[Rfam]
RNA sequence: AUCAGAGUAGGUAAAGAGCGUCAAGUGUUAAGAAAUGGGAAGUAGUUCUUAAACGAAGAAUGUCAAUUCUACGAUUCUUUAUCGCAUCCGCUGUA
Numbered sequence: 001a002u003c004a005g006a007g008u009a010g011g012u013a014a015a016g017a018g019c020g021u022c023a024a025g026u027g028u029u030a031a032g033a034a035a036u037g038g039g040a041a042g043u044a045g046u047u048c049u050u051a052a053a054c055g056a057a058g059a060a061u062g063u064c065a066a067u068u069c070u071a072c073g074a075u076u077c078u079u080u081a082u083c084g085c086a087u088c089c090g091c092u093g094u095a
Base pairs, nucleotide, nucleotide: 003093004092005091010083011082012081013080014079015078016077017076018075019073020072021071025054026053028052029051030050031049032048033047034046038089039088040087042085058070060068